[Rfam]
RNA sequence: GUGAGGGCAUGCAGGCCUGGAUGGGGCAGCUGGGAUGGUCCAAAAGGGUGGCCUCACCAGCCCUGUGUUCCCUAG
Number, nucleotide and partner (000 for none) at each position: 001g000002u000003g000004a073005g072006g071007g070008c000009a068010u067011g066012c065013a064014g063015g062016c000017c060018u059019g058020g057021a000022u056023g055024g054025g053026g052027c051028a000029g049030c048031u047032g041033g040034g039035a000036u000037g000038g000039u034040c033041c032042a000043a000044a000045a000046g000047g031048g030049u029050g000051g027052c026053c025054u024055c023056a022057c020058c019059a018060g017061c000062c015063c014064u013065g012066u011067g010068u009069u000070c007071c006072c005073u004074a000075g000